[Rfam]
RNA sequence: CGGUGAGGUAGAGGUCGCGGGUUUCAUCAGUAGCCGUCGGGAGGCCGAGUGGGGCUGACGAUCGACGUGUGAAAGGGAAAACCGCCGAAGCUGGCCUGCGCCACUACGCAGGCCGGCUGGGGCUGCAUCGAACAGGUGCAGAACUGUCACAGGUCAUCCUGUGGAGCGCUAUCUUGAAG
Number, nucleotide and partner (000 for none) at each position: 001c000002g000003g000004u000005g000006a174007g173008g172009u171010a170011g169012a000013g000014g000015u000016c000017g085018c084019g083020g082021g000022u080023u079024u078025c077026a000027u000028c000029a000030g000031u000032a000033g070034c069035c067036g066037u065038c064039g063040g062041g000042a000043g000044g000045c000046c000047g000048a000049g000050u000051g000052g000053g000054g000055c000056u000057g000058a000059c000060g000061a000062u040063c039064g038065a037066c036067g035068u000069g034070u033071g000072a000073a000074a000075g000076g000077g025078a024079a023080a022081a000082c020083c019084g018085c017086c000087g000088a000089a118090g117091c116092u115093g114094g113095c112096c111097u110098g109099c108100g107101c000102c000103a000104c000105u000106a000107c100108g099109c098110a097111g096112g095113c094114c093115g092116g091117c090118u089119g145120g144121g000122g000123c141124u140125g139126c138127a137128u136129c135130g000131a000132a000133c000134a000135g129136g128137u127138g126139c125140a124141g123142a000143a000144c120145u119146g000147u164148c163149a162150c161151a160152g159153g158154u000155c000156a000157u000158c153159c152160u151161g150162u149163g148164g147165a000166g000167c000168g000169c011170u010171a009172u008173c007174u006175u000176g000177a000178a000179g000

Notes
A member of the RNA family "Lysine riboswitch aptamer" from Brevibacillus sp. SYP-B805, 179 nucleotides long. A search with the family's covariance model found it, with a score of 131 bits. Its family is annotated with lysine biosynthetic process in the Gene Ontology. The family's consensus secondary structure is taken from published work. Riboswitches are metabolite binding domains within certain messenger RNAs that serve as precision sensors for their corresponding targets.